[Rfam]
RNA sequence: ACAGAUAUUUAAGUAUCUGAUUAAUAAAGUAAUUAAAUACUUUACCAAAUUUUGGGUCUCGACUUCUUUAAUUGAUUGGUGGUAAUCAAUUAAGGCUCGCAGUUAAAAUUUCUCAGGCUUUAACUGGU
Numbered sequence: 001a002c003a004g005a006u007a008u009u010u011a012a013g014u015a016u017c018u019g020a021u022u023a024a025u026a027a028a029g030u031a032a033u034u035a036a037a038u039a040c041u042u043u044a045c046c047a048a049a050u051u052u053u054g055g056g057u058c059u060c061g062a063c064u065u066c067u068u069u070a071a072u073u074g075a076u077u078g079g080u081g082g083u084a085a086u087c088a089a090u091u092a093a094g095g096c097u098c099g100c101a102g103u104u105a106a107a108a109u110u111u112c113u114c115a116g117g118c119u120u121u122a123a124c125u126g127g128u
Stems, first nucleotide, its partner, number of pairs: 002019007025044007053099004066095013102124006109117003
Annotation: Shown here is a 128-nucleotide RNA from Streptococcus agalactiae, a member of the family "Plasmid RNAIII". The literature on the family includes a 2003 paper in J Mol Biol by Heidrich and Brantl, "Antisense-RNA mediated transcriptional attenuation: importance of a U-turn loop structure in the target RNA of plasmid pIP501 for efficient inhibition by the antisense RNA". It is annotated as a non-coding RNA gene.